[Rfam]
SAM-III riboswitch aptamer (SMK box): an 88-nucleotide RNA from Lacticaseibacillus rhamnosus. Gene Ontology terms of the family: methionine adenosyltransferase activity and regulation of translational initiation. The literature on the family includes a 2007 paper in Proc Natl Acad Sci U S A by Fuchs et al., "S-adenosylmethionine directly inhibits binding of 30S ribosomal subunits to the SMK box translational riboswitch RNA".
RNA sequence: UAGAGUUGCAAUACAUUCCCGAUGGGGUUCGUUAGCGAUUAACGAACAUGCCUUGUAACCGAAAAUCAUGAGGGGGAAACAAACGAUG
Numbered sequence: 001u002a003g004a005g006u007u008g009c010a011a012u013a014c015a016u017u018c019c020c021g022a023u024g025g026g027g028u029u030c031g032u033u034a035g036c037g038a039u040u041a042a043c044g045a046a047c048a049u050g051c052c053u054u055g056u057a058a059c060c061g062a063a064a065a066u067c068a069u070g071a072g073g074g075g076g077a078a079a080c081a082a083a084c085g086a087u088g
Base pairs, nucleotide, nucleotide: 016078017077018076019075020074024053025052026051028046029045030044031043032042059073060072